[Rfam]
RNA sequence: CUUCAGCGAACCGAGCCGCAGGGGCUGGUCCCGGUCCCGCCCGUAGGCGGCCAGCAGGGCGCGCGCCUC
Numbered sequence: 001c002u003u004c005a006g007c008g009a010a011c012c013g014a015g016c017c018g019c020a021g022g023g024g025c026u027g028g029u030c031c032c033g034g035u036c037c038c039g040c041c042c043g044u045a046g047g048c049g050g051c052c053a054g055c056a057g058g059g060c061g062c063g064c065g066c067c068u069c
Base pairs, nucleotide, nucleotide: 014026015025016024017023031065032059037054039052041050042049043048

The family of this 69-nucleotide RNA from Streptomyces sp. RB17 is "ASpks TB sRNA". The source organism's lineage runs through Bacteria, Bacillati, Actinomycetota, Actinomycetes and Streptomyces. Rfam 15.1 lists 9,052 matches to the family in 683 species.